[Rfam]
Eukaryotic large subunit ribosomal RNA: a 434-nucleotide part of an RNA from Theileria parva. The source organism's lineage runs through Eukaryota, Alveolata, Aconoidasida, Theileriidae and Theileria. A reference for the family is Yusupov et al. (2001), "Crystal structure of the ribosome at 5.5 A resolution", Science.
RNA sequence: GGUAGUAGUUAAUAUUCAAAUGAGAAUUUUGAAGACUGAAGUGGAGCAGGGUUCCAUGUGAACUAUGUUUGGACAUGGGUUAGCCGGUCCUAAGCGCCAGCUUAACUGCGUGUGAGGUGACUUUGGUCCGCUCCGCGAAAGGGAAUCGGGCUAAUAUUCCCGAGCCGGGUCGUGGAUACUGGGUGGCAACACAAGUGAACUUCUCGACGCAGGCGUGGGUCCCGGGAAGCGUUAUCUUUGCUUUUUAACAGUCUCGAGUGCCCUGGAAUCAGCUUAUCUGGCGAUAGGGACUCUGUGCUGGAAUAGCAUCUCGACUUUCGGGGUGUCUGGUGCGCCCACGACUGUCCGUGAAAAGGGAAGGGAACAUUGUUAUUCGCACCCCCGUCCGUACCUAUAUCCGCAUCAGGUCUCCAAGGUUAGCAGCCUCUGGUCGA
Numbered sequence: 001g002g003u004a005g006u007a008g009u010u011a012a013u014a015u016u017c018a019a020a021u022g023a024g025a026a027u028u029u030u031g032a033a034g035a036c037u038g039a040a041g042u043g044g045a046g047c048a049g050g051g052u053u054c055c056a057u058g059u060g061a062a063c064u065a066u067g068u069u070u071g072g073a074c075a076u077g078g079g080u081u082a083g084c085c086g087g088u089c090c091u092a093a094g095c096g097c098c099a100g101c102u103u104a105a106c107u108g109c110g111u112g113u114g115a116g117g118u119g120a121c122u123u124u125g126g127u128c129c130g131c132u133c134c135g136c137g138a139a140a141g142g143g144a145a146u147c148g149g150g151c152u153a154a155u156a157u158u159c160c161c162g163a164g165c166c167g168g169g170u171c172g173u174g175g176a177u178a179c180u181g182g183g184u185g186g187c188a189a190c191a192c193a194a195g196u197g198a199a200c201u202u203c204u205c206g207a208c209g210c211a212g213g214c215g216u217g218g219g220u221c222c223c224g225g226g227a228a229g230c231g232u233u234a235u236c237u238u239u240g241c242u243u244u245u246u247a248a249c250a251g252u253c254u255c256g257a258g259u260g261c262c263c264u265g266g267a268a269u270c271a272g273c274u275u276a277u278c279u280g281g282c283g284a285u286a287g288g289g290a291c292u293c294u295g296u297g298c299u300g301g302a303a304u305a306g307c308a309u310c311u312c313g314a315c316u317u318u319c320g321g322g323g324u325g326u327c328u329g330g331u332g333c334g335c336c337c338a339c340g341a342c343u344g345u346c347c348g349u350g351a352a353a354a355g356g357g358a359a360g361g362g363a364a365c366a367u368u369g370u371u372a373u374u375c376g377c378a379c380c381c382c383c384g385u386c387c388g389u390a391c392c393u394a395u396a397u398c399c400g401c402a403u404c405a406g407g408u409c410u411c412c413a414a415g416g417u418u419a420g421c422a423g424c425c426u427c428u429g430g431u432c433g434a
Stems, first nucleotide, its partner, number of pairs: 015033006034432004043412004049392002054078006063071001085388003089142002094136002098110001100109002116129002146163005166384004172379003176373002183192003200360006209345004214340007222330003225245006249300004261289005269281004307325007398407002414426004